[Rfam]
RNA sequence: AAUUACUACUAGGGGUGCCCAAAAUCGAGGGCUGAGAGGAAAGCACGUAUAAGCUUUCUGACUCUUACGGACCUGAUCUGGUUAAUACCAGCGGAGGGAAGUAGACUGACGAUAUA
Numbered sequence: 001a002a003u004u005a006c007u008a009c010u011a012g013g014g015g016u017g018c019c020c021a022a023a024a025u026c027g028a029g030g031g032c033u034g035a036g037a038g039g040a041a042a043g044c045a046c047g048u049a050u051a052a053g054c055u056u057u058c059u060g061a062c063u064c065u066u067a068c069g070g071a072c073c074u075g076a077u078c079u080g081g082u083u084a085a086u087a088c089c090a091g092c093g094g095a096g097g098g099a100a101g102u103a104g105a106c107u108g109a110c111g112a113u114a115u116a
Base pairs, nucleotide, nucleotide: 006104007103008102009101010100011065012064013063014062017032018031019030020029039058040057041056042055043054072097073096074095078091079090080089081088